[Rfam]
RNA sequence: AGAUUCUGCCUUUCAGGCAUCCUCUCCCAAAACUUUCCGACCCGGCGGGCAACUGCCGGGUCUUUUUUUUGUUCGCG
Numbered sequence: 001a002g003a004u005u006c007u008g009c010c011u012u013u014c015a016g017g018c019a020u021c022c023u024c025u026c027c028c029a030a031a032a033c034u035u036u037c038c039g040a041c042c043c044g045g046c047g048g049g050c051a052a053c054u055g056c057c058g059g060g061u062c063u064u065u066u067u068u069u070u071g072u073u074c075g076c077g
Stems, first nucleotide, its partner, number of pairs: 008018004039062009